Rfam assigns this 148-nucleotide RNA sequence to the family "proV RNA". It is annotated as a small RNA.

RNA sequence: CGUCGCUGUCACCUGAGCAGGGUCGACAGACCGGGCGCCCACAGCCCCGGACCGAAAAAUAUAUAAGUGCUGGCUCACCACAUGAUGGGUGCCAGCCCAACAAGAAAUUUCGGAUGUACGCGCACCUCGGGACGAGGUGGGUAAUACC
Numbered sequence: 001c002g003u004c005g006c007u008g009u010c011a012c013c014u015g016a017g018c019a020g021g022g023u024c025g026a027c028a029g030a031c032c033g034g035g036c037g038c039c040c041a042c043a044g045c046c047c048c049g050g051a052c053c054g055a056a057a058a059a060u061a062u063a064u065a066a067g068u069g070c071u072g073g074c075u076c077a078c079c080a081c082a083u084g085a086u087g088g089g090u091g092c093c094a095g096c097c098c099a100a101c102a103a104g105a106a107a108u109u110u111c112g113g114a115u116g117u118a119c120g121c122g123c124a125c126c127u128c129g130g131g132a133c134g135a136g137g138u139g140g141g142u143a144a145u146a147c148c
Stems, first nucleotide, its partner, number of pairs: 006029005011023002013020002031050005037045002121141001123139006